RNA sequence: AUGAUUACAAGGGGAGAGCUUACAUUAUGUAACGCCGAAGGAGCAAGUUAAGAGCGAAUCUCUCAGGCAAAAAGACUCUUGUAGGACG
Numbered sequence: 001a002u003g004a005u006u007a008c009a010a011g012g013g014g015a016g017a018g019c020u021u022a023c024a025u026u027a028u029g030u031a032a033c034g035c036c037g038a039a040g041g042a043g044c045a046a047g048u049u050a051a052g053a054g055c056g057a058a059u060c061u062c063u064c065a066g067g068c069a070a071a072a073a074g075a076c077u078c079u080u081g082u083a084g085g086a087c088g
Base pairs, nucleotide, nucleotide: 006083007082008081009080010079011078012077013076020032021031022030023029034068035067036066037064038063041062042061043060047055048054
The record is an 88-nucleotide sequence from Oceanobacillus profundus, which matches "Glycine riboswitch aptamer" in Rfam. It scores 68 bits against the family's covariance model. Pairs were carried over by alignment from the consensus structure. Taxonomically the source falls in Oceanobacillus (Bacteria, Bacillota, Bacilli, Caryophanales).